[Rfam]
RNA sequence: UCGUGAGGUAGAGGUGCGGUAUUUAAUAGUUUUUCAGGGAGCUGCGAGAAAGCGUUGAAAUGAAAAAGAAGGAAAUAUCGCCGAAGUGUACAUAAGGCUCGCUUAUGUAUGCUGGGGCUGCAGUGAAGAACUGUAGAACUGUCUUGCAUGCUCUUUCCCGAACAUGUAAGUUGUGCUAUCUCAAUA
Dot-bracket structure: .....((((((....(((((((((......((((((........................))))))......)))))))))...((((((((((((.....))))))))))))((..(((((((.....)))))))..))..((((((((............)))))))).....)))))).....
Numbered sequence: 001u002c003g004u005g006a007g008g009u010a011g012a013g014g015u016g017c018g019g020u021a022u023u024u025a026a027u028a029g030u031u032u033u034u035c036a037g038g039g040a041g042c043u044g045c046g047a048g049a050a051a052g053c054g055u056u057g058a059a060a061u062g063a064a065a066a067a068g069a070a071g072g073a074a075a076u077a078u079c080g081c082c083g084a085a086g087u088g089u090a091c092a093u094a095a096g097g098c099u100c101g102c103u104u105a106u107g108u109a110u111g112c113u114g115g116g117g118c119u120g121c122a123g124u125g126a127a128g129a130a131c132u133g134u135a136g137a138a139c140u141g142u143c144u145u146g147c148a149u150g151c152u153c154u155u156u157c158c159c160g161a162a163c164a165u166g167u168a169a170g171u172u173g174u175g176c177u178a179u180c181u182c183a184a185u186a
Stems, first nucleotide, its partner, number of pairs: 006181006016081009031066006085113012114140002118136007143170008